The record is a 72-nucleotide sequence from Nocardia otitidiscaviarum, which matches "tRNA" in Rfam.
RNA sequence: AUGGGCGUAGCUCAGUGGCAGAGCAGUGGUCUCCAAAACCGCGUGUCGGGAGUUCGAUUCUCUCCGCCCGUG
Numbered sequence: 001a002u003g004g005g006c007g008u009a010g011c012u013c014a015g016u017g018g019c020a021g022a023g024c025a026g027u028g029g030u031c032u033c034c035a036a037a038a039c040c041g042c043g044u045g046u047c048g049g050g051a052g053u054u055c056g057a058u059u060c061u062c063u064c065c066g067c068c069c070g071u072g
Base pairs, nucleotide, nucleotide: 001071002070003069004068005067006066007065010024011023012022013021026042027041028040029039030038048064049063050062051061052060
Lineage of the source: Bacteria > Bacillati > Actinomycetota > Nocardiaceae > Nocardia. It is annotated as a transfer RNA.